[Rfam]
RNA sequence: UGUAAGCGUGCAGCGUACGCUGACACAGUGCGGAACGUACGCAGUCCUGUUUAUCAAAGCGAAUAAUGCCGACCAUUUCGUCUUCCUCGAAACGCUGCAGCGCAUCGUUCAGGCCCGAUUCCACCCCGCGCGGCAAGUCGCACUGGGUGAUAUCGCCGUUGACGAUCACCGUCACGUUCUCUCCCAGGCGGGUG
Numbered sequence: 001u002g003u004a005a006g007c008g009u010g011c012a013g014c015g016u017a018c019g020c021u022g023a024c025a026c027a028g029u030g031c032g033g034a035a036c037g038u039a040c041g042c043a044g045u046c047c048u049g050u051u052u053a054u055c056a057a058a059g060c061g062a063a064u065a066a067u068g069c070c071g072a073c074c075a076u077u078u079c080g081u082c083u084u085c086c087u088c089g090a091a092a093c094g095c096u097g098c099a100g101c102g103c104a105u106c107g108u109u110c111a112g113g114c115c116c117g118a119u120u121c122c123a124c125c126c127c128g129c130g131c132g133g134c135a136a137g138u139c140g141c142a143c144u145g146g147g148u149g150a151u152a153u154c155g156c157c158g159u160u161g162a163c164g165a166u167c168a169c170c171g172u173c174a175c176g177u178u179c180u181c182u183c184c185c186a187g188g189c190g191g192g193u194g
Stems, first nucleotide, its partner, number of pairs: 002054007014041006061078004067072001083112002088107001093102003113193005119188002126133002137166004144158003171183001174180001
A member of the RNA family "Yersinia sRNA 251" from Serratia rubidaea, 194 nucleotides long. Taxonomically the source falls in Serratia (Bacteria, Gammaproteobacteria, Enterobacterales, Yersiniaceae).